[Rfam]
Annotation
Shown here is a 133-nucleotide RNA from Canis lupus, a member of the family "Small nucleolar RNA SNORA41". Its family is annotated with RNA processing and nucleolus in the Gene Ontology. The organism belongs to Canis lupus, within Eukaryota. For this family Rfam cites "RNomics: an experimental approach that identifies 201 candidates for novel, small, non-messenger RNAs in mouse" (Huttenhofer et al., EMBO J, 2001). The family's RNA type in Rfam is H/ACA-box small nucleolar RNA. From the family's description: ACA41 is a member of the H/ACA class of snoRNA that guide the sites of modification of uridines to pseudouridines. The base pairs follow the family's consensus structure, which was predicted with PFOLD.
RNA sequence: UUCCACAGCUACUGGUCUGCAGCUGUUCUUACAGUAGCAGUUGUGGCAUUCCUCUGUGGGAAAGAAACUGUUAUGCAAUUAAACACCUCUUUCUUAGCACAACGGAAAGUGGGCAUAUGAGUAACAAACAUAA
Numbered sequence: 001u002u003c004c005a006c007a008g009c010u011a012c013u014g015g016u017c018u019g020c021a022g023c024u025g026u027u028c029u030u031a032c033a034g035u036a037g038c039a040g041u042u043g044u045g046g047c048a049u050u051c052c053u054c055u056g057u058g059g060g061a062a063a064g065a066a067a068c069u070g071u072u073a074u075g076c077a078a079u080u081a082a083a084c085a086c087c088u089c090u091u092u093c094u095u096a097g098c099a100c101a102a103c104g105g106a107a108a109g110u111g112g113g114c115a116u117a118u119g120a121g122u123a124a125c126a127a128a129c130a131u132a133a
Stems, first nucleotide, its partner, number of pairs: 003059004017046009073122002076119002086113003089109006